RNA sequence: AAAAAAGCGUUGAAGGAAUAUAGUAGCAGCGUAAUUCCCUGCACAAAGAGAGCUGACGGUAGGUGCGAGUCAGUGCAAAAUUAGUUGCGAAGUACACUCUGAAGCUACUCUUAUCUUUUGGUGAGAGUCGGUCAUUUUACCGUUAUAAACUCAAGUGGCAAUUGUUAGGAUUGCAACAAGGGUGGUACCGCGAGCGCACCUCGUCCCUUUU
Numbered sequence: 001a002a003a004a005a006a007g008c009g010u011u012g013a014a015g016g017a018a019u020a021u022a023g024u025a026g027c028a029g030c031g032u033a034a035u036u037c038c039c040u041g042c043a044c045a046a047a048g049a050g051a052g053c054u055g056a057c058g059g060u061a062g063g064u065g066c067g068a069g070u071c072a073g074u075g076c077a078a079a080a081u082u083a084g085u086u087g088c089g090a091a092g093u094a095c096a097c098u099c100u101g102a103a104g105c106u107a108c109u110c111u112u113a114u115c116u117u118u119u120g121g122u123g124a125g126a127g128u129c130g131g132u133c134a135u136u137u138u139a140c141c142g143u144u145a146u147a148a149a150c151u152c153a154a155g156u157g158g159c160a161a162u163u164g165u166u167a168g169g170a171u172u173g174c175a176a177c178a179a180g181g182g183u184g185g186u187a188c189c190g191c192g193a194g195c196g197c198a199c200c201u202c203g204u205c206c207c208u209u210u211u
Base pairs, nucleotide, nucleotide: 007105008104015100016099017098026088027087028086029085030084040077041076042075052074053073054072055071056070057069108127109126110125111124112123113122114121129142130141131140158174159173160172161171162170163169179208180207181206182205190204191203192202193201194200
Rfam assigns this 211-nucleotide RNA sequence from Terrihalobacillus insolitus to the family "T-box leader". The family's consensus secondary structure is taken from published work. From the family's description: Uncharged tRNA acts as the effector for transcription antitermination of genes in the T-box leader family. T-boxes are found upstream of many aminoacyl-tRNA synthetase genes and some amino acid biosynthetic genes usually in Gram-positive bacteria. The anticodon of a specific tRNA base pairs to a specifier sequence within the T-box motif, and the NCCA acceptor tail of the tRNA base pairs to a conserved bulge in the T-box antiterminator hairpin. Rfam links the family to the GO term tRNA binding. It scores 131 bits against the family's covariance model.